This 300-nucleotide RNA sequence from Neofusicoccum parvum belongs to the Rfam family "Group I catalytic intron". About the family: Group I catalytic introns are large self-splicing ribozymes. Rfam 15.1 lists 5,602 matches to the family in 1,395 species. On this family, see Cech, Annu Rev Biochem 1990: "Self-splicing of group I introns".
[Rfam]
RNA sequence: AAAACUGACUAGGAUAGCUGGUAAAAAUUAGUGUGAGCUACUAAUUAGGCCAGUAAGUAGAAGUGAACCUUCUGCUAUAGACCAUCAAAUUGACGGGAAAGCCCUAAAGCAAAUUCAACCAAACAAAUGUGGUAACACAUUUGUGGCGCAGGUAAUGACUCGCGGUAAGGUAACAUCGAAAUUGAUAGCGAAAGUGAAUGGGUAAUCCGCAGCCAAGCACCUUAUGGGUGUGCAGUUCAUCGACUAAAUGUUGGUUGGCGCAAGCUUAAGAUAUAGUCAAGCCUCAUCCAAAAGGAUGCA
Numbered sequence: 001a002a003a004a005c006u007g008a009c010u011a012g013g014a015u016a017g018c019u020g021g022u023a024a025a026a027a028u029u030a031g032u033g034u035g036a037g038c039u040a041c042u043a044a045u046u047a048g049g050c051c052a053g054u055a056a057g058u059a060g061a062a063g064u065g066a067a068c069c070u071u072c073u074g075c076u077a078u079a080g081a082c083c084a085u086c087a088a089a090u091u092g093a094c095g096g097g098a099a100a101g102c103c104c105u106a107a108a109g110c111a112a113a114u115u116c117a118a119c120c121a122a123a124c125a126a127a128u129g130u131g132g133u134a135a136c137a138c139a140u141u142u143g144u145g146g147c148g149c150a151g152g153u154a155a156u157g158a159c160u161c162g163c164g165g166u167a168a169g170g171u172a173a174c175a176u177c178g179a180a181a182u183u184g185a186u187a188g189c190g191a192a193a194g195u196g197a198a199u200g201g202g203u204a205a206u207c208c209g210c211a212g213c214c215a216a217g218c219a220c221c222u223u224a225u226g227g228g229u230g231u232g233c234a235g236u237u238c239a240u241c242g243a244c245u246a247a248a249u250g251u252u253g254g255u256u257g258g259c260g261c262a263a264g265c266u267u268a269a270g271a272u273a274u275a276g277u278c279a280a281g282c283c284u285c286a287u288c289c290a291a292a293a294g295g296a297u298g299c300a
Stems, first nucleotide, its partner, number of pairs: 006024001008022005029040003080256005086250002091211002094209004102202003212236002217231006240279001242278005258265002285298005